Shown here is a 70-nucleotide sequence, a member of the family "mir-187 microRNA precursor family".
RNA sequence: CUCCGGCUACAACACAGGACAUGGGAGCUUUUCUGAACCCUCGUGUCUUGUGUUGCAGCCAGAGGGGCAC
Numbered sequence: 001c002u003c004c005g006g007c008u009a010c011a012a013c014a015c016a017g018g019a020c021a022u023g024g025g026a027g028c029u030u031u032u033c034u035g036a037a038c039c040c041u042c043g044u045g046u047c048u049u050g051u052g053u054u055g056c057a058g059c060c061a062g063a064g065g066g067g068c069a070c
Base pairs, nucleotide, nucleotide: 001064002063005060006059007058008057010055011054012053013052014051015050016049017048018047019046020045022043023042024041025040
Dot-bracket structure: ((..((((.(((((((((((.((((..............)))).))))))))))).))))..))......
The base pairs follow the family's consensus structure, which was predicted with RNAalifold.